RNA: narK RNA
RNA sequence: GGCUCAGCUCUUGCUAUCGAUCAGGCAAUGGCAGCCAACGGUGGUUGCUCACUGAACGACAAAGGCGUCGC
Numbered sequence: 001g002g003c004u005c006a007g008c009u010c011u012u013g014c015u016a017u018c019g020a021u022c023a024g025g026c027a028a029u030g031g032c033a034g035c036c037a038a039c040g041g042u043g044g045u046u047g048c049u050c051a052c053u054g055a056a057c058g059a060c061a062a063a064g065g066c067g068u069c070g071c
Stems, first nucleotide, its partner, number of pairs: 030049007
Dot-bracket structure: .............................(((((((......)))))))......................